[Rfam]
RNA sequence: CCUACACCUAUGUGUAUAGGGCGCCAAAGGAUCACCAUUAAAUUUGGCACAGAUCUCUAGAAAAGUUAUCACAUGGGUAUGGGAUUUGACUUUUCUAGAUAUAUGAGCCAAAUUUAAUGGUGAUCCUUUGGGGUCCUACACACAUGAGUGUAGG
Numbered sequence: 001c002c003u004a005c006a007c008c009u010a011u012g013u014g015u016a017u018a019g020g021g022c023g024c025c026a027a028a029g030g031a032u033c034a035c036c037a038u039u040a041a042a043u044u045u046g047g048c049a050c051a052g053a054u055c056u057c058u059a060g061a062a063a064a065g066u067u068a069u070c071a072c073a074u075g076g077g078u079a080u081g082g083g084a085u086u087u088g089a090c091u092u093u094u095c096u097a098g099a100u101a102u103a104u105g106a107g108c109c110a111a112a113u114u115u116a117a118u119g120g121u122g123a124u125c126c127u128u129u130g131g132g133g134u135c136c137u138a139c140a141c142a143c144a145u146g147a148g149u150g151u152a153g154g
Stems, first nucleotide, its partner, number of pairs: 002153006009146005015140001017138006024131005030125003034121015050105002053102002056099013069082003073078001
A member of the RNA family "MIR8565 microRNA precursor family" from Amborella trichopoda, 154 nucleotides long. The source organism's lineage runs through Eukaryota, Tracheophyta, Magnoliopsida, Amborellaceae and Amborella. Pairs were carried over by alignment from the consensus structure, which was predicted with RNAalifold. Gene Ontology terms of the family: RISC complex and miRNA-mediated post-transcriptional gene silencing.